[Rfam]
RNA sequence: CCCGUCACGUCGGGAGAGACCGGCCCUACCCGCCGGCGCCGAAGGAGCAACCGCCCCGGAAACUCUCAGGCAAAAGGACCGCGUGACGUC
Numbered sequence: 001c002c003c004g005u006c007a008c009g010u011c012g013g014g015a016g017a018g019a020c021c022g023g024c025c026c027u028a029c030c031c032g033c034c035g036g037c038g039c040c041g042a043a044g045g046a047g048c049a050a051c052c053g054c055c056c057c058g059g060a061a062a063c064u065c066u067c068a069g070g071c072a073a074a075a076g077g078a079c080c081g082c083g084u085g086a087c088g089u090c
Base pairs, nucleotide, nucleotide: 005086006085007084008083009082011081012080013079020036021035022034023033038071039070040069041067042066045065046064047063051059052058
Rfam assigns this 90-nucleotide RNA sequence from Bradyrhizobium ivorense to the family "Glycine riboswitch aptamer". A search with the family's covariance model found it, with a score of 63 bits. Lineage of the source: Bacteria > Pseudomonadati > Alphaproteobacteria > Nitrobacteraceae > Bradyrhizobium.